[Rfam]
RNA sequence: GGCCUCCCUCUGUGGGGUGAUUGAUUGGGAGACCCUGCAAUCGAUCGCUCCACAGAGGGAGGCC
Numbered sequence: 001g002g003c004c005u006c007c008c009u010c011u012g013u014g015g016g017g018u019g020a021u022u023g024a025u026u027g028g029g030a031g032a033c034c035c036u037g038c039a040a041u042c043g044a045u046c047g048c049u050c051c052a053c054a055g056a057g058g059g060a061g062g063c064c
Stems, first nucleotide, its partner, number of pairs: 001064027029036001
Source information
The family of this 64-nucleotide RNA sequence from Myotis lucifugus is "mir-9242 microRNA precursor family". Taxonomically the source falls in Myotis (Eukaryota, Euteleostomi, Mammalia, Eutheria). Gene Ontology terms of the family: RISC complex and miRNA-mediated post-transcriptional gene silencing.